[Rfam]
RNA sequence: AGAGUGUUAUGAUGUUGGAGGUAACUCCGAGUCUAGCUCAGCUUCACCUGCAAAGAAAAGCUUUGCAGG
Dot-bracket structure: .((((.....(((...((((....))))..)))..)))).......(((((((((.....)))))))))
Numbered sequence: 001a002g003a004g005u006g007u008u009a010u011g012a013u014g015u016u017g018g019a020g021g022u023a024a025c026u027c028c029g030a031g032u033c034u035a036g037c038u039c040a041g042c043u044u045c046a047c048c049u050g051c052a053a054a055g056a057a058a059a060g061c062u063u064u065g066c067a068g069g
Stems, first nucleotide, its partner, number of pairs: 002039004011033003017028004047069009
Shown here is a 69-nucleotide RNA from Melissococcus plutonius, a member of the family "L17 ribosomal protein downstream element". NCBI's taxonomy places the organism under Bacteria, Bacillati, Bacilli, Melissococcus, Melissococcus plutonius. Rfam classes the family as a cis-regulatory element. Pairs were carried over by alignment from the consensus structure, which is taken from published work.